Rfam assigns this 256-nucleotide RNA sequence from Bacillus sp. V5-8f to the family "BsrG". The family's consensus secondary structure was predicted with WAR. The match comes from Rfam's covariance-model search (92 bits). For this family Rfam cites "Novel small RNA-encoding genes in the intergenic regions of Bacillus subtilis" (Saito et al., Gene, 2008). The organism belongs to Bacillus, within Bacteria. bsrE, bsrG and bsrH pair through intermolecular interactions with antisense sRNAs. They form type I toxin/antitoxin system that includes an mRNA encoding for a short, toxic peptide (bsrE, bsrG and bsrH) and an antitoxin that is comprised of an antisense RNA. bsrG encodes a 39-amino-acid toxin, and the 180 nucleotide antisense sRNA called SR4 acts as the antitoxin (they overlap by 123 nucleotides). SR4 interaction with the 3'UTR of bsrG RNA promotes bsrG degradation and inhibits its translation. BsrG interferes with cell envelope biosynthesis, causes membrane invaginations and delocalisation of the cell wall synthesis and initiates autolysis. bsrE RNA encodes 30 amino-acid toxin peptide. Rfam 15.1 lists 614 matches to the family in 343 species. Rfam links the family to the GO terms autolysis and toxin activity.
RNA sequence: UCAAUAGAAUACGGUUUCUGAAGGGUGGUCAUCAUCCCCCUAUGGAAGGGGGUGAUGCUGUAUGACAGUGUUUGAAGCGUUAAUGCUUUACUUGUCUUUUACAAGCUUAAUCGCGGGGGAUCCUGUCAAAUGAUCAUAAAAAAUAAUCCACCUUUGAGCCUGCAAGCAUAAGGUGGAUUAUUUCCGCUUUUGUAGCUGAUCGCCCUUCACAGGGGACCGUCUAUUGCAUGACCGUUCGGUGUUACCAGCACCGGCG
Numbered sequence: 001u002c003a004a005u006a007g008a009a010u011a012c013g014g015u016u017u018c019u020g021a022a023g024g025g026u027g028g029u030c031a032u033c034a035u036c037c038c039c040c041u042a043u044g045g046a047a048g049g050g051g052g053u054g055a056u057g058c059u060g061u062a063u064g065a066c067a068g069u070g071u072u073u074g075a076a077g078c079g080u081u082a083a084u085g086c087u088u089u090a091c092u093u094g095u096c097u098u099u100u101a102c103a104a105g106c107u108u109a110a111u112c113g114c115g116g117g118g119g120a121u122c123c124u125g126u127c128a129a130a131u132g133a134u135c136a137u138a139a140a141a142a143a144u145a146a147u148c149c150a151c152c153u154u155u156g157a158g159c160c161u162g163c164a165a166g167c168a169u170a171a172g173g174u175g176g177a178u179u180a181u182u183u184c185c186g187c188u189u190u191u192g193u194a195g196c197u198g199a200u201c202g203c204c205c206u207u208c209a210c211a212g213g214g215g216a217c218c219g220u221c222u223a224u225u226g227c228a229u230g231a232c233c234g235u236u237c238g239g240u241g242u243u244a245c246c247a248g249c250a251c252c253g254g255c256g
Stems, first nucleotide, its partner, number of pairs: 002226003006222003013201004018158002021155005027148003032055003036052005064127005070121001077091001100119001102117001168188001202217001204215002233256003237253007